[Rfam]
RNA sequence: UUCAUGGUGACAUGAAAUCUGAAGGAAGCCCUAGGCAAAUCCUUGGUCUGAGGUACACGAACCACAUUUGAGGUUUCAAUUUCAGGACGAGUUUGCAAAACAAAAUGAAGUCCCAAAUAUCCCCGGAUGGAAUUGAAAUAAAUGUGGCAGACACAUGAGGAGAAGGUGGAUGAA
Numbered sequence: 001u002u003c004a005u006g007g008u009g010a011c012a013u014g015a016a017a018u019c020u021g022a023a024g025g026a027a028g029c030c031c032u033a034g035g036c037a038a039a040u041c042c043u044u045g046g047u048c049u050g051a052g053g054u055a056c057a058c059g060a061a062c063c064a065c066a067u068u069u070g071a072g073g074u075u076u077c078a079a080u081u082u083c084a085g086g087a088c089g090a091g092u093u094u095g096c097a098a099a100a101c102a103a104a105a106u107g108a109a110g111u112c113c114c115a116a117a118u119a120u121c122c123c124c125g126g127a128u129g130g131a132a133u134u135g136a137a138a139u140a141a142a143u144g145u146g147g148c149a150g151a152c153a154c155a156u157g158a159g160g161a162g163a164a165g166g167u168g169g170a171u172g173a174a
Base pairs, nucleotide, nucleotide: 001016002015003014004013005012006011030172032170035167036166040161041160042159043158044157045156046152047151048150049149050148062147063146064145065144066143067142073139074138075137077135078134079133080132081131082130083129085113086112087111088110091106092105093104094103